Shown here is a 58-nucleotide RNA from Cryobacterium psychrotolerans, a member of the family "msiK RNA". The family's consensus secondary structure is taken from published work.
RNA sequence: GUCACAUCCCACUCACAACGGAUCGUCCGGCACGUUCCUGCCGGUGAAGGAGAAGAAA
Numbered sequence: 001g002u003c004a005c006a007u008c009c010c011a012c013u014c015a016c017a018a019c020g021g022a023u024c025g026u027c028c029g030g031c032a033c034g035u036u037c038c039u040g041c042c043g044g045u046g047a048a049g050g051a052g053a054a055g056a057a058a
Base pairs, nucleotide, nucleotide: 009050010049013047014046015045027044028043029042030041031040032039